[Rfam]
RNA sequence: UGGUCAAUGAUGACUAGCCCACUGCGCAAUCUUAGUUCAUGUGAACAAUAUGGUAGAAAUAGUGCUGUUGGUUUCUGAGGCCA
Numbered sequence: 001u002g003g004u005c006a007a008u009g010a011u012g013a014c015u016a017g018c019c020c021a022c023u024g025c026g027c028a029a030u031c032u033u034a035g036u037u038c039a040u041g042u043g044a045a046c047a048a049u050a051u052g053g054u055a056g057a058a059a060u061a062g063u064g065c066u067g068u069u070g071g072u073u074u075c076u077g078a079g080g081c082c083a
Base pairs, nucleotide, nucleotide: 002082003081004080005079040047041046

The family of this 83-nucleotide RNA from Eleutherodactylus coqui is "small Cajal body-specific RNA 18". Pairs were carried over by alignment from the consensus structure, which was predicted with PFOLD. The match comes from Rfam's covariance-model search (42 bits). Lineage of the source: Eukaryota > Opisthokonta > Deuterostomia > Sarcopterygii > Eleutherodactylus. Rfam links the family to the GO terms nucleolus, Cajal body and RNA processing. scaRNAs are a specific class of small nuclear RNAs which localise to the Cajal bodies and guide the modification of RNA polymerase II transcribed spliceosomal RNAs U1, U2, U4, U5 and U12. This C/D box domain U91 (also known as U4-8) was identified by Darzacq and is predicted to guide the 2'O-ribose methylation of U4 snRNA C8. On this family, see Darzacq et al., EMBO J 2002: "Cajal body-specific small nuclear RNAs: a novel class of 2'-O-methylation and pseudouridylation guide RNAs". The family has 20 seed sequences and 406 matches in Rfam 15.1. The family's RNA type in Rfam is small Cajal body RNA.